The family of this 62-nucleotide RNA sequence from Nannospalax galili is "Gag/pol translational readthrough site". The source organism's lineage runs through Eukaryota, Deuterostomia, Euteleostomi, Spalacidae and Nannospalax. Pairs were carried over by alignment from the consensus structure, which is taken from published work. The family's RNA type in Rfam is cis-regulatory element. The match comes from Rfam's covariance-model search (75 bits).
RNA sequence: UAGGGAAGUCGGGGCCAGGAGCUCCCCCCUGAGCCCAGGCUAACUCUAAAAAUAGGGGGACA
Numbered sequence: 001u002a003g004g005g006a007a008g009u010c011g012g013g014g015c016c017a018g019g020a021g022c023u024c025c026c027c028c029c030u031g032a033g034c035c036c037a038g039g040c041u042a043a044c045u046c047u048a049a050a051a052a053u054a055g056g057g058g059g060a061c062a
Stems, first nucleotide, its partner, number of pairs: 008041001010039001012036004016031004023059005
Dot-bracket structure: .......(.(.((((((((...[[[[[)))).))))..).).............]]]]]...